[Rfam]
RNA sequence: GUAAAUAUAGUUUAACAAAAACAUUAGAUUGUGAAUCUAACAAUAGAAACUCAUUACCUUCUUAUUUACC
Numbered sequence: 001g002u003a004a005a006u007a008u009a010g011u012u013u014a015a016c017a018a019a020a021a022c023a024u025u026a027g028a029u030u031g032u033g034a035a036u037c038u039a040a041c042a043a044u045a046g047a048a049a050c051u052c053a054u055u056a057c058c059u060u061c062u063u064a065u066u067u068a069c070c
Stems, first nucleotide, its partner, number of pairs: 001069007010022004024040005045062004
Dot-bracket structure: (((((((..((((.....)))).(((((.......)))))....((((..........))))))))))).

The record is a 70-nucleotide RNA sequence, which matches "tRNA" in Rfam.
It is one of the family's seed sequences.
Pairs were carried over by alignment from the consensus structure, which is taken from published work.